The record is a 66-nucleotide sequence from Anaerovirgula multivorans, which matches "Fluoride riboswitch aptamer (crcB RNA motif)" in Rfam.
Rfam links the family to the GO terms positive regulation of gene expression and response to fluoride.
The base pairs follow the family's consensus structure, which is taken from published work.
Lineage of the source: Bacteria > Clostridia > Peptostreptococcales > Natronincolaceae > Anaerovirgula.

RNA sequence: UUAAUGAAAGGUGAUGGAGUUCACCACUAACCAUUGCUUACGGCAAUUAAUGACUCCUACUUAAAU
Numbered sequence: 001u002u003a004a005u006g007a008a009a010g011g012u013g014a015u016g017g018a019g020u021u022c023a024c025c026a027c028u029a030a031c032c033a034u035u036g037c038u039u040a041c042g043g044c045a046a047u048u049a050a051u052g053a054c055u056c057c058u059a060c061u062u063a064a065a066u
Stems, first nucleotide, its partner, number of pairs: 010025004016057006033047004